[Rfam]
RNA sequence: UGGAAUUGCUUUUUGGUUUUGCAGAUGUUUGAUAAUGGUACAUUAUCAAACAUCUGCAAAACCAAAAAGCAAUUCCA
Numbered sequence: 001u002g003g004a005a006u007u008g009c010u011u012u013u014u015g016g017u018u019u020u021g022c023a024g025a026u027g028u029u030u031g032a033u034a035a036u037g038g039u040a041c042a043u044u045a046u047c048a049a050a051c052a053u054c055u056g057c058a059a060a061a062c063c064a065a066a067a068a069g070c071a072a073u074u075c076c077a
Stems, first nucleotide, its partner, number of pairs: 001077005007071020028050006
RNA: mir-9/mir-79 microRNA precursor family
Organism: Oryzias sinensis